[Rfam]
RNA sequence: CUCUCCGAAAACUAUUUAGGUAGUGCCUCGUGUAUCACCUUCGGGGGUAGAGCACUGUCAUGGUUGAAGGGUCCAUUGCGGAUUACUUCGCCAUAGCAAACUCCGAAUACCGAAGAGUGCAAUCACGGGAGACAGACAUCGGGUGCUAACGUCCGGUGUCAAGAGGGAAACAACCCAGACCGCCAGCUAAGGUCCCCAAAUAUGGCUAAGUGGGAAACGAAGUGGGAAGGCUAAAACAGUCAGGAGGUUGGCUUAGAAGCAGCCACCCUUUAAAGAAAGCGUAAUAGCUCACUGAUCGAGUCGUCCUGCGCGGAAGAUGUAACGGGGCUAAGCCAUAUACCGAAGCUGCGGAUGCACAUUUAUGUGCAUGGUAGGAGAGCGUUCUGUAAGCCUGCGAAGGUGCAUUGGAAAGUGCGCUGGAGGUAUCAGAAGUGCGAAU
Numbered sequence: 001c002u003c004u005c006c007g008a009a010a011a012c013u014a015u016u017u018a019g020g021u022a023g024u025g026c027c028u029c030g031u032g033u034a035u036c037a038c039c040u041u042c043g044g045g046g047g048u049a050g051a052g053c054a055c056u057g058u059c060a061u062g063g064u065u066g067a068a069g070g071g072u073c074c075a076u077u078g079c080g081g082a083u084u085a086c087u088u089c090g091c092c093a094u095a096g097c098a099a100a101c102u103c104c105g106a107a108u109a110c111c112g113a114a115g116a117g118u119g120c121a122a123u124c125a126c127g128g129g130a131g132a133c134a135g136a137c138a139u140c141g142g143g144u145g146c147u148a149a150c151g152u153c154c155g156g157u158g159u160c161a162a163g164a165g166g167g168a169a170a171c172a173a174c175c176c177a178g179a180c181c182g183c184c185a186g187c188u189a190a191g192g193u194c195c196c197c198a199a200a201u202a203u204g205g206c207u208a209a210g211u212g213g214g215a216a217a218c219g220a221a222g223u224g225g226g227a228a229g230g231c232u233a234a235a236a237c238a239g240u241c242a243g244g245a246g247g248u249u250g251g252c253u254u255a256g257a258a259g260c261a262g263c264c265a266c267c268c269u270u271u272a273a274a275g276a277a278a279g280c281g282u283a284a285u286a287g288c289u290c291a292c293u294g295a296u297c298g299a300g301u302c303g304u305c306c307u308g309c310g311c312g313g314a315a316g317a318u319g320u321a322a323c324g325g326g327g328c329u330a331a332g333c334c335a336u337a338u339a340c341c342g343a344a345g346c347u348g349c350g351g352a353u354g355c356a357c358a359u360u361u362a363u364g365u366g367c368a369u370g371g372u373a374g375g376a377g378a379g380c381g382u383u384c385u386g387u388a389a390g391c392c393u394g395c396g397a398a399g400g401u402g403c404a405u406u407g408g409a410a411a412g413u414g415c416g417c418u419g420g421a422g423g424u425a426u427c428a429g430a431a432g433u434g435c436g437a438a439u
Base pairs, nucleotide, nucleotide: 001379002378003377004376005375006374011024012023013022014021015020026131027129028128029127030126031125032124035122036119037118038117039115040114041113042112043111044110050104051102052101056098057097058096060094061093062092063091068087069086070084071083072082073081074080135160136159137158138157139156140155141154142153143152144151165176166175167174180351181350182349183348185347186346187345191341192340193339200338201337202336203335204334205333206332218312219311222309223308224307225306226305227304229302230301231300239296240295241294242293243292245269246268247267250264251263252262270274275290279288280287352369353368354367355366356365357364358363380434382431383430384429385428386427390424391423392422399418400417401416402415403414404413405412406411
Annotation
A member of the RNA family "Bacterial large subunit ribosomal RNA" from Paraburkholderia acidisoli, 439 nucleotides of a longer RNA. Pairs were carried over by alignment from the consensus structure, which is taken from published work.